[Rfam]
RNA sequence: CAUACUCUCUCUCUGUCUCUCUCUCUCUCUCUCUAUAUAUAUGUAUAUAUAUAGAGAGAGAGAGAGAGAGACAGAGAGAGAGUAUG
Numbered sequence: 001c002a003u004a005c006u007c008u009c010u011c012u013c014u015g016u017c018u019c020u021c022u023c024u025c026u027c028u029c030u031c032u033c034u035a036u037a038u039a040u041a042u043g044u045a046u047a048u049a050u051a052u053a054g055a056g057a058g059a060g061a062g063a064g065a066g067a068g069a070g071a072c073a074g075a076g077a078g079a080g081a082g083u084a085u086g
Stems, first nucleotide, its partner, number of pairs: 001086030032055003035048005
Rfam assigns this 86-nucleotide sequence from Adiantum capillus-veneris to the family "mir-4716 microRNA precursor family". A search with the family's covariance model found it, with a score of 77 bits. Rfam links the family to the GO terms RISC complex and miRNA-mediated post-transcriptional gene silencing.